[Rfam]
RNA sequence: UUCUUAUCCAGAGAGGUGGAGGGACUGGCCCUUCGAAACCUCAGCAACAGACAUUUGUUCUGUGCUAAUUCCAGAAGCGUCAUGCUGAAGAUGAGAA
Numbered sequence: 001u002u003c004u005u006a007u008c009c010a011g012a013g014a015g016g017u018g019g020a021g022g023g024a025c026u027g028g029c030c031c032u033u034c035g036a037a038a039c040c041u042c043a044g045c046a047a048c049a050g051a052c053a054u055u056u057g058u059u060c061u062g063u064g065c066u067a068a069u070u071c072c073a074g075a076a077g078c079g080u081c082a083u084g085c086u087g088a089a090g091a092u093g094a095g096a097a
Stems, first nucleotide, its partner, number of pairs: 001097008013042005021031003025074004043066004048062002050059003070089001076086003
RNA: SAM riboswitch aptamer (S box leader)